This 150-nucleotide sequence from Mustela putorius belongs to the Rfam family "U12 minor spliceosomal RNA".
RNA sequence: AUGCCUUAAACUUAUGAGUAAGGAGAACAAUGAUUGGGCGUGAUACCAGAAUGUUCACGGCCAAUGUGAGAUGUAUUAUUGAGCUGGUGAAGGUGGCCCUCAGGGUGACCUGCCUCCUUUGCUGGAUGCCUGGGAGUCAUGAUCUGCCUG
Numbered sequence: 001a002u003g004c005c006u007u008a009a010a011c012u013u014a015u016g017a018g019u020a021a022g023g024a025g026a027a028c029a030a031u032g033a034u035u036g037g038g039c040g041u042g043a044u045a046c047c048a049g050a051a052u053g054u055u056c057a058c059g060g061c062c063a064a065u066g067u068g069a070g071a072u073g074u075a076u077u078a079u080u081g082a083g084c085u086g087g088u089g090a091a092g093g094u095g096g097c098c099c100u101c102a103g104g105g106u107g108a109c110c111u112g113c114c115u116c117c118u119u120u121g122c123u124g125g126a127u128g129c130c131u132g133g134g135a136g137u138c139a140u141g142a143u144c145u146g147c148c149u150g
Stems, first nucleotide, its partner, number of pairs: 004023005033052003038047001054070005084150001086148003091145004096140001100134002103131005109125002112122002
The base pairs follow the family's consensus structure. It scores 90 bits against the family's covariance model. The source organism's lineage runs through Eukaryota, Euteleostomi, Eutheria, Mustelinae and Mustela putorius. The family is grouped with related families in Rfam's "U2 clan". Its family is annotated with pre-mRNA branch point binding, mRNA branch site recognition and U12 snRNP in the Gene Ontology.